RNA sequence: GCAGCACAUUUUGAAUUGGGCCGGCGCCCAAGCCAACCUGCCUACCCGGGCAAGGUGGAUCGCGAAAGCGGAUGUGGCUCCUGUAGGAGCAAACAAGCGGGCAAGC
Numbered sequence: 001g002c003a004g005c006a007c008a009u010u011u012u013g014a015a016u017u018g019g020g021c022c023g024g025c026g027c028c029c030a031a032g033c034c035a036a037c038c039u040g041c042c043u044a045c046c047c048g049g050g051c052a053a054g055g056u057g058g059a060u061c062g063c064g065a066a067a068g069c070g071g072a073u074g075u076g077g078c079u080c081c082u083g084u085a086g087g088a089g090c091a092a093a094c095a096a097g098c099g100g101g102c103a104a105g106c
Base pairs, nucleotide, nucleotide: 006075007074008073009072010071017030018029019028020027021026033058034057037055038054039053040051041050042049045101046100047099048098077090078089079088080087
Dot-bracket structure: .....(((((......(((((....)))))..((..((((((..[[[[))).))).))............))))).((((......)))).......]]]].....

Annotation
Shown here is a 106-nucleotide RNA from Pandoraea thiooxydans, a member of the family "SAM-I/IV (S-adenosyl methionine) riboswitch aptamer". A search with the family's covariance model found it, with a score of 52 bits. The family is grouped with related families in Rfam's "SAM clan".